[Rfam]
RNA: Plastid-psbM 3UTR RNA
RNA sequence: GAUAGAUAGUAUGGUAGAAAGAAAUAGAUGAAUCUUUCUACCAUACUAUUUAUUAGUUAGAUUGUAGUGUCCCUUGGAAUAAAA
Numbered sequence: 001g002a003u004a005g006a007u008a009g010u011a012u013g014g015u016a017g018a019a020a021g022a023a024a025u026a027g028a029u030g031a032a033u034c035u036u037u038c039u040a041c042c043a044u045a046c047u048a049u050u051u052a053u054u055a056g057u058u059a060g061a062u063u064g065u066a067g068u069g070u071c072c073c074u075u076g077g078a079a080u081a082a083a084a
Stems, first nucleotide, its partner, number of pairs: 005050018